Guanidine-II riboswitch aptamer (mini-ykkC): a 46-nucleotide RNA sequence from Litorivita pollutaquae. It scores 33 bits against the family's covariance model. Its family is annotated with regulation of gene expression in the Gene Ontology.

[Rfam]
Nucleotides: 046
Base pairs, nucleotide, nucleotide: 001016003014004013005012006011033046034045035044036043037042
Number, partner (000 for none) and nucleotide at each position: 001016g002000u003014g004013a005012g006011g007000a008000c009000g010000a011006c012005c013004u014003c015000c016001c017000c018000c019000u020000a021000u022000c023000g024000g025000g026000u027000a028000c029000u030000c031000u032000u033046c034045c035044g036043g037042g038000a039000c040000g041000g042037c043036c044035c045034g046033g